[Rfam]
Nucleotides: 099
Base pairs, nucleotide, nucleotide: 020083021082022081023080024079025078029047030045031044032043033042034041056075057074058073059072060071061070062069
Number, partner (000 for none) and nucleotide at each position: 001000u002000a003000c004000a005000a006000g007000g008000c009000a010000a011000g012000a013000c014000g015000c016000c017000a018000a019000g020083c021082g022081c023080g024079u025078a026000u027000a028000u029047g030045u031044c032043g033042g034041g035000g036000a037000u038000c039000g040000g041034c042033c043032c044031g045030a046000a047029c048000g049000u050000c051000u052000c053000u054000a055000c056075c057074c058073g059072g060071a061070a062069a063000c064000c065000c066000u067000a068000a069062u070061u071060u072059c073058c074057g075056g076000a077000c078025u079024a080023c081022g082021c083020g084000g085000c086000a087000a088000u089000c090000g091000c092000a093000g094000g095000c096000g097000g098000c099000a
Purine riboswitch aptamer: a 99-nucleotide RNA from Cohnella sp. CIP 111063. Taxonomically the source falls in Cohnella (Bacteria, Bacillota, Caryophanales, Paenibacillaceae). The match comes from Rfam's covariance-model search (52 bits).